[Rfam]
RNA sequence: CAGCCUAAGUGAUAAUGAUUCUUCCUGUCUCUUCUCUGAGAUUUGCUAUGAAGAGGCUUGUAUUUUUAUUCCUCUGAUCAGACUG
Numbered sequence: 001c002a003g004c005c006u007a008a009g010u011g012a013u014a015a016u017g018a019u020u021c022u023u024c025c026u027g028u029c030u031c032u033u034c035u036c037u038g039a040g041a042u043u044u045g046c047u048a049u050g051a052a053g054a055g056g057c058u059u060g061u062a063u064u065u066u067u068a069u070u071c072c073u074c075u076g077a078u079c080a081g082a083c084u085g
Base pairs, nucleotide, nucleotide: 001085002084003083005081